[Rfam]
RNA sequence: AUUAAAUAUUAGCAAAGUAUAGGAAACUGUAUGACGCAAAGCUAGAGGGCCUGUAAGAUGGCAGCCAGUUGCACUU
Numbered sequence: 001a002u003u004a005a006a007u008a009u010u011a012g013c014a015a016a017g018u019a020u021a022g023g024a025a026a027c028u029g030u031a032u033g034a035c036g037c038a039a040a041g042c043u044a045g046a047g048g049g050c051c052u053g054u055a056a057g058a059u060g061g062c063a064g065c066c067a068g069u070u071g072c073a074c075u076u
Base pairs, nucleotide, nucleotide: 012037013036017032018031019030020029021028022027040070041069042068043067047066048065049062050061051060
Dot-bracket structure: ...........((...((((((....))))))...))..((((...(((((........)))..))))))......

Source information: Rfam assigns this 76-nucleotide sequence from Cetobacterium somerae to the family "c-di-GMP-I riboswitch aptamer". Pairs were carried over by alignment from the consensus structure, which is taken from published work. It scores 51 bits against the family's covariance model.